[Rfam]
RNA sequence: AAUACAAGUAGAGGUGCACAUGACACUGGUAAAAGUUGGAGUAGCCAUACUGUGAAGACUUUGAAGAGGGAUUGUGCCGAAAUGGUAAAGCUGGACACUUUGCUGUUGGGACUUCGUUUAAUAGAUGAAGUACUGUCAUGAUUAUCAUGGUGCGCUACAUUUGUU
Numbered sequence: 001a002a003u004a005c006a007a008g009u010a011g012a013g014g015u016g017c018a019c020a021u022g023a024c025a026c027u028g029g030u031a032a033a034a035g036u037u038g039g040a041g042u043a044g045c046c047a048u049a050c051u052g053u054g055a056a057g058a059c060u061u062u063g064a065a066g067a068g069g070g071a072u073u074g075u076g077c078c079g080a081a082a083u084g085g086u087a088a089a090g091c092u093g094g095a096c097a098c099u100u101u102g103c104u105g106u107u108g109g110g111a112c113u114u115c116g117u118u119u120a121a122u123a124g125a126u127g128a129a130g131u132a133c134u135g136u137c138a139u140g141a142u143u144a145u146c147a148u149g150g151u152g153c154g155c156u157a158c159a160u161u162u163g164u165u
Stems, first nucleotide, its partner, number of pairs: 006160001008158004016077005024069001032062006081107010108134002111131008136150006
Shown here is a 165-nucleotide RNA sequence from Nosocomiicoccus massiliensis, a member of the family "Lysine riboswitch aptamer". The base pairs follow the family's consensus structure, which is taken from published work. Rfam links the family to the GO term lysine biosynthetic process. NCBI's taxonomy places the organism under Bacteria, Bacillati, Bacillota, Staphylococcaceae, Nosocomiicoccus.